Notes: A member of the RNA family "SAM riboswitch aptamer (S box leader)", 108 nucleotides long.
RNA sequence: CUCUUAUCAAGAGUGGCAGAGGGACUGGCCCGAUGACGCCCAGCAACCGUUCCAUAUGGAAUUGGUGCUAAAUCCUGCAAAACAAUUUUUUGUUUUGAAAGAUAAGAG
Numbered sequence: 001c002u003c004u005u006a007u008c009a010a011g012a013g014u015g016g017c018a019g020a021g022g023g024a025c026u027g028g029c030c031c032g033a034u035g036a037c038g039c040c041c042a043g044c045a046a047c048c049g050u051u052c053c054a055u056a057u058g059g060a061a062u063u064g065g066u067g068c069u070a071a072a073u074c075c076u077g078c079a080a081a082a083c084a085a086u087u088u089u090u091u092g093u094u095u096u097g098a099a100a101g102a103u104a105a106g107a108g
Base pairs, nucleotide, nucleotide: 001108002107003106004105005104006103007102008101013041015040016039017038021031022030023029025077027075028074042069043068044067045066047065048064050061051060052059053058073100078097079096080095081094082093083092

The SAM riboswitch is found upstream of a number of genes which code for proteins involved in methionine or cysteine biosynthesis in Gram-positive bacteria.